A member of the RNA family "Burkholderia RNA 7 (anti-hemB)" from Candidatus Gallionella acididurans, 91 nucleotides long.
From the family's description: This RNA motif was identified by computational search in b-proteobacteria Burkholderia. Co-purified with Hfq, expression confirmed by Northern blot.
The family's consensus secondary structure is taken from published work.
[Rfam]
RNA sequence: GCGCACGUUUCUCCUCCCUGAGCGUGUUGUCUUAACCCCCUGUUAAGAUAUUUUGCCCUUGAUGCAGCAGCACGCUCAAGGGCAUUUUUUU
Numbered sequence: 001g002c003g004c005a006c007g008u009u010u011c012u013c014c015u016c017c018c019u020g021a022g023c024g025u026g027u028u029g030u031c032u033u034a035a036c037c038c039c040c041u042g043u044u045a046a047g048a049u050a051u052u053u054u055g056c057c058c059u060u061g062a063u064g065c066a067g068c069a070g071c072a073c074g075c076u077c078a079a080g081g082g083c084a085u086u087u088u089u090u091u
Stems, first nucleotide, its partner, number of pairs: 004026006030048007055083008
NCBI's taxonomy places the organism under Bacteria, Pseudomonadota, Betaproteobacteria, Gallionellaceae, Gallionella. The match comes from Rfam's covariance-model search (50 bits).